[Rfam]
RNA sequence: CGAUGGGGCCUCUGCAACAGGAGCUGCGUGAACCCCGCCAGGCCCGGAAGGGAGCAACGGUAGCGUGGUUUCCUGUGUGCCGGAGUGUCCCUGUCGAGC
Numbered sequence: 001c002g003a004u005g006g007g008g009c010c011u012c013u014g015c016a017a018c019a020g021g022a023g024c025u026g027c028g029u030g031a032a033c034c035c036c037g038c039c040a041g042g043c044c045c046g047g048a049a050g051g052g053a054g055c056a057a058c059g060g061u062a063g064c065g066u067g068g069u070u071u072c073c074u075g076u077g078u079g080c081c082g083g084a085g086u087g088u089c090c091c092u093g094u095c096g097a098g099c
Base pairs, nucleotide, nucleotide: 004093005092006091007090008089010085011084012083013082014081015077017076018075019074020073021072022071024068025067026066027065028064029063035060036059037058043052044051045050
Dot-bracket structure: ...(((((.((((((.((((((.((((((.....(((.....(((....))).....)))..))))))..)))))))...)))))...)))))......